[Rfam]
RNA sequence: AAACUGAAGGCAUCGACAGCUCGUAUAAAUCCGGAAAUAAGGUCCGGAAGUUUCUACCUGGAAACCGUAAAUUUCCGGACUACGGGGAAUUGAAAGACAUAA
Numbered sequence: 001a002a003a004c005u006g007a008a009g010g011c012a013u014c015g016a017c018a019g020c021u022c023g024u025a026u027a028a029a030u031c032c033g034g035a036a037a038u039a040a041g042g043u044c045c046g047g048a049a050g051u052u053u054c055u056a057c058c059u060g061g062a063a064a065c066c067g068u069a070a071a072u073u074u075c076c077g078g079a080c081u082a083c084g085g086g087g088a089a090u091u092g093a094a095a096g097a098c099a100u101a102a
Stems, first nucleotide, its partner, number of pairs: 020086006030048006058078007